[Rfam]
Rfam assigns this 65-nucleotide sequence from Synechococcus sp. CC9311 to the family "Cyano-1 RNA". Rfam's curators put it in the seed alignment.
RNA sequence: GGUCGUGUGAGGAGGGCUUCUUCACGGAGUGGAAACAAGGCAACACGCCCUACGAGAAGCCGAGA
Numbered sequence: 001g002g003u004c005g006u007g008u009g010a011g012g013a014g015g016g017c018u019u020c021u022u023c024a025c026g027g028a029g030u031g032g033a034a035a036c037a038a039g040g041c042a043a044c045a046c047g048c049c050c051u052a053c054g055a056g057a058a059g060c061c062g063a064g065a
Stems, first nucleotide, its partner, number of pairs: 015061008026050002029046003

Rfam classes the family as a small RNA.